[Rfam]
Rfam assigns this 578-nucleotide part of an RNA from Metamycoplasma hominis to the family "Bacterial small subunit ribosomal RNA". Clan: SSU clan. The literature on the family includes a 2001 paper in Science by Yusupov et al., "Crystal structure of the ribosome at 5.5 A resolution".
RNA sequence: UGACGGGGACCCGCACAAGCGGUGGAGCAUGUGGUUUAAUUUGAAGAUACACGGAAAACCUUACCCACUCUUGACAUCCUUCGCAAAGCUAUAGAGAUAUAGUGGAGGUUAUCGGAGUGACAGAUGGUGCAUGGUUGUCGUCAGCUCGUGUCGUGAGAUGUUUGGUCAAGUCCUGCAACGAGCGCAACCCCUAUCUUUAGUUACUAACAUUAAGUUGAGGACUCUAGAGAUACUGCCUGGGUAACUGGGAGGAAGGUGGGGAUGACGUCAAAUCAUCAUGCCUCUUACGAGUGGGGCCACACACGUGCUACAAUGGUCGGUACAAAGAGAAGCAAUAUGGCGACAUGGAGCAAAUCUCAAAAAGCCGAUCUCAGUUCGGAUUGGAGUCUGCAAUUCGACUCCAUGAAGUCGGAAUCGCUAGUAAUCGCAGAUCAGCUAUGCUGCGGUGAAUACGUUCUCGGGUCUUGUACACACCGCCCGUCACACCAUGGGAGCUGGUAAUACCCAAAGUCGGUUUGCUAACCUCGGAGGCGACCGCCUAAGGUAGGACUGGUGACUGGGGUGAAGUCGUAACAAGG
Numbered sequence: 001u002g003a004c005g006g007g008g009a010c011c012c013g014c015a016c017a018a019g020c021g022g023u024g025g026a027g028c029a030u031g032u033g034g035u036u037u038a039a040u041u042u043g044a045a046g047a048u049a050c051a052c053g054g055a056a057a058a059c060c061u062u063a064c065c066c067a068c069u070c071u072u073g074a075c076a077u078c079c080u081u082c083g084c085a086a087a088g089c090u091a092u093a094g095a096g097a098u099a100u101a102g103u104g105g106a107g108g109u110u111a112u113c114g115g116a117g118u119g120a121c122a123g124a125u126g127g128u129g130c131a132u133g134g135u136u137g138u139c140g141u142c143a144g145c146u147c148g149u150g151u152c153g154u155g156a157g158a159u160g161u162u163u164g165g166u167c168a169a170g171u172c173c174u175g176c177a178a179c180g181a182g183c184g185c186a187a188c189c190c191c192u193a194u195c196u197u198u199a200g201u202u203a204c205u206a207a208c209a210u211u212a213a214g215u216u217g218a219g220g221a222c223u224c225u226a227g228a229g230a231u232a233c234u235g236c237c238u239g240g241g242u243a244a245c246u247g248g249g250a251g252g253a254a255g256g257u258g259g260g261g262a263u264g265a266c267g268u269c270a271a272a273u274c275a276u277c278a279u280g281c282c283u284c285u286u287a288c289g290a291g292u293g294g295g296g297c298c299a300c301a302c303a304c305g306u307g308c309u310a311c312a313a314u315g316g317u318c319g320g321u322a323c324a325a326a327g328a329g330a331a332g333c334a335a336u337a338u339g340g341c342g343a344c345a346u347g348g349a350g351c352a353a354a355u356c357u358c359a360a361a362a363a364g365c366c367g368a369u370c371u372c373a374g375u376u377c378g379g380a381u382u383g384g385a386g387u388c389u390g391c392a393a394u395u396c397g398a399c400u401c402c403a404u405g406a407a408g409u410c411g412g413a414a415u416c417g418c419u420a421g422u423a424a425u426c427g428c429a430g431a432u433c434a435g436c437u438a439u440g441c442u443g444c445g446g447u448g449a450a451u452a453c454g455u456u457c458u459c460g461g462g463u464c465u466u467g468u469a470c471a472c473a474c475c476g477c478c479c480g481u482c483a484c485a486c487c488a489u490g491g492g493a494g495c496u497g498g499u500a501a502u503a504c505c506c507a508a509a510g511u512c513g514g515u516u517u518g519c520u521a522a523c524c525u526c527g528g529a530g531g532c533g534a535c536c537g538c539c540u541a542a543g544g545u546a547g548g549a550c551u552g553g554u555g556a557c558u559g560g561g562g563u564g565a566a567g568u569c570g571u572a573a574c575a576a577g578g
Base pairs, nucleotide, nucleotide: 001471002470003468004467005466007465008464009463010462011461012460013459015455016454019418020417021416022415023414024311026309027308028307029306030305031304032303033302034300035299040055041054042053043052064295065294066293067292068291069290070289077120078119079117080116081115082114083113088103089102090101091100092099093098123284124283126282127281128280129279132278133277134273135272136271137269139267140266144183145182146181147180148179149178150159151158152157162175164173165172189261190260191259192258194230195229196228197227198226199225200224204219205218208217209216233252234251236249237248238247239246240245315370316369317368318367319366320365321364327358328357329356332351333350337346338345339344377408382403383402384401385400386399387398388397424447425446426445427444428443429442430441474577476574479570480569484564485563486562487561489559490558491557494554495553496552497551498550499549502546503545504544505543510539512537513536514535515534517533518532519531520530523528